[Rfam]
RNA sequence: GUUCUGUUUCAGGGCGAGGUGAAAGUCCUCACUGGCGGUGAUCGGCACAUGGCCGAAAGUCCGCGACCCUGUCGCCACGCGGCAGGUUGACCUGGUGAGAUUCCAGGACCAACGGUUACAGUCCGGAUGGGAGAAGCAGAUG
Numbered sequence: 001g002u003u004c005u006g007u008u009u010c011a012g013g014g015c016g017a018g019g020u021g022a023a024a025g026u027c028c029u030c031a032c033u034g035g036c037g038g039u040g041a042u043c044g045g046c047a048c049a050u051g052g053c054c055g056a057a058a059g060u061c062c063g064c065g066a067c068c069c070u071g072u073c074g075c076c077a078c079g080c081g082g083c084a085g086g087u088u089g090a091c092c093u094g095g096u097g098a099g100a101u102u103c104c105a106g107g108a109c110c111a112a113c114g115g116u117u118a119c120a121g122u123c124c125g126g127a128u129g130g131g132a133g134a135a136g137c138a139g140a141u142g
Base pairs, nucleotide, nucleotide: 003140004139005138006137007136008135009134010133017029018028019027031122032121033111034110035064036063037062038061059109060108068086069085091107092106093105094104095103113125114124115123